GA-cis RNA: an 89-nucleotide RNA. It is one of the family's seed sequences. The family's RNA type in Rfam is small RNA. The base pairs follow the family's consensus structure, which is taken from published work.
[Rfam]
RNA sequence: GAGAGGAGGAGCGCAAUGAUGCGUAGCAGCAUUCUUUGAAUGCGCUCCGACGACAUGCCCCGGCCCAGUGGGGCGGGGCGAUACCUUGA
Numbered sequence: 001g002a003g004a005g006g007a008g009g010a011g012c013g014c015a016a017u018g019a020u021g022c023g024u025a026g027c028a029g030c031a032u033u034c035u036u037u038g039a040a041u042g043c044g045c046u047c048c049g050a051c052g053a054c055a056u057g058c059c060c061c062g063g064c065c066c067a068g069u070g071g072g073g074c075g076g077g078g079c080g081a082u083a084c085c086u087u088g089a
Stems, first nucleotide, its partner, number of pairs: 008048006016032003020028002057079003061075002065071002